[Rfam]
RNA sequence: GUGUUUUUCAUAGUAUUAGAUUUAAGGUUAACAAAGGUGAGAUCUUAGCGAAGAUCUAAAAAAAUCCUACCUGCAGUGAUUGCAAGUAGGAUUCUUUUUUUAUA
Dot-bracket structure: .........................................((((((.......................................))))))............
Numbered sequence: 001g002u003g004u005u006u007u008u009c010a011u012a013g014u015a016u017u018a019g020a021u022u023u024a025a026g027g028u029u030a031a032c033a034a035a036g037g038u039g040a041g042a043u044c045u046u047a048g049c050g051a052a053g054a055u056c057u058a059a060a061a062a063a064a065u066c067c068u069a070c071c072u073g074c075a076g077u078g079a080u081u082g083c084a085a086g087u088a089g090g091a092u093u094c095u096u097u098u099u100u101u102a103u104a
Stems, first nucleotide, its partner, number of pairs: 042092006